Shown here is a 180-nucleotide sequence from Podilymbus podiceps, a member of the family "Small Cajal body specific RNA 16". A search with the family's covariance model found it, with a score of 110 bits. The source organism's lineage runs through Eukaryota, Metazoa, Gnathostomata, Sauria and Podilymbus. Pairs were carried over by alignment from the consensus structure, which was predicted with RNAfold. A reference for the family is Darzacq et al. (2002), "Cajal body-specific small nuclear RNAs: a novel class of 2'-O-methylation and pseudouridylation guide RNAs", EMBO J. The family has 37 seed sequences and 790 matches in Rfam 15.1. Gene Ontology terms of the family: RNA processing and nucleolus. About the family: scaRNAs are a specific class of small nuclear RNAs which localise to the Cajal bodies and guide the modification of RNA polymerase II transcribed spliceosomal RNAs U1, U2, U4, U5 and U12. ACA47 belongs to the H/ACA box class of guide RNAs as it has the predicted hairpin-hinge-hairpin-tail structure, the conserved H/ACA-box motifs and is found associated with GAR1. ACA47 is predicted to guide the pseudouridylation of residue U5 of the U1 spliceosomal snRNA.
RNA sequence: CAGGGCUGGGGAAGGGCUGCUGGGUGGCGGGGCCAGCGAGCCCAGCCUCGUACCCCACAGCCUCACCCGCGCCCGAGAUCAACUCCCAAGCGGGCUCCGUGCUGGGCUUCAUCCUGUGCAGUAACAGGUGUGAGCAUUCAUGCAGCGUUUUGAUGGUCAUGUAUGAUACUGCAUACAGCG
Numbered sequence: 001c002a003g004g005g006c007u008g009g010g011g012a013a014g015g016g017c018u019g020c021u022g023g024g025u026g027g028c029g030g031g032g033c034c035a036g037c038g039a040g041c042c043c044a045g046c047c048u049c050g051u052a053c054c055c056c057a058c059a060g061c062c063u064c065a066c067c068c069g070c071g072c073c074c075g076a077g078a079u080c081a082a083c084u085c086c087c088a089a090g091c092g093g094g095c096u097c098c099g100u101g102c103u104g105g106g107c108u109u110c111a112u113c114c115u116g117u118g119c120a121g122u123a124a125c126a127g128g129u130g131u132g133a134g135c136a137u138u139c140a141u142g143c144a145g146c147g148u149u150u151u152g153a154u155g156g157u158c159a160u161g162u163a164u165g166a167u168a169c170u171g172c173a174u175a176c177a178g179c180g
Base pairs, nucleotide, nucleotide: 003074004073005072006071008068009067010066015062016061017060018059022054024053025052026047027046028045030043032041033040086106087105089103090102091101092100115175116174117173118172119171120170121169122168123167125165126164131159132158133157135155136154137153138152142149